Background: The family of this 81-nucleotide RNA sequence from Oryzias latipes is "mir-459 microRNA precursor family".

[Rfam]
RNA sequence: CGUGCUGCUGUCAGUAACAAGGAUUCAUCCUGUUGUGACGCUGCAGACGGACAGGAAGUCAUUGUUACUGGGAGUGUCUGU
Numbered sequence: 001c002g003u004g005c006u007g008c009u010g011u012c013a014g015u016a017a018c019a020a021g022g023a024u025u026c027a028u029c030c031u032g033u034u035g036u037g038a039c040g041c042u043g044c045a046g047a048c049g050g051a052c053a054g055g056a057a058g059u060c061a062u063u064g065u066u067a068c069u070g071g072g073a074g075u076g077u078c079u080g081u
Stems, first nucleotide, its partner, number of pairs: 011071009022060004029055006037048001039046001